[Rfam]
A member of the RNA family "FMN riboswitch aptamer (RFN element)" from Micrococcales bacterium KH10, 123 nucleotides long.
RNA sequence: ACAUGCUCUGGGAUCGGUGAAAGCCCGAACCGGCGGUGAUAGUCCGCGAACCGCGCGUCAGCGCGUGGUUGACUCGGUGAAAUUCCGAGACCGACGGUAACAGUCCGGAUGGGAAGAGCAUUG
Numbered sequence: 001a002c003a004u005g006c007u008c009u010g011g012g013a014u015c016g017g018u019g020a021a022a023g024c025c026c027g028a029a030c031c032g033g034c035g036g037u038g039a040u041a042g043u044c045c046g047c048g049a050a051c052c053g054c055g056c057g058u059c060a061g062c063g064c065g066u067g068g069u070u071g072a073c074u075c076g077g078u079g080a081a082a083u084u085c086c087g088a089g090a091c092c093g094a095c096g097g098u099a100a101c102a103g104u105c106c107g108g109a110u111g112g113g114a115a116g117a118g119c120a121u122u123g
Stems, first nucleotide, its partner, number of pairs: 003121006015027003029104002031093002033047004042091002050069003073089005095107003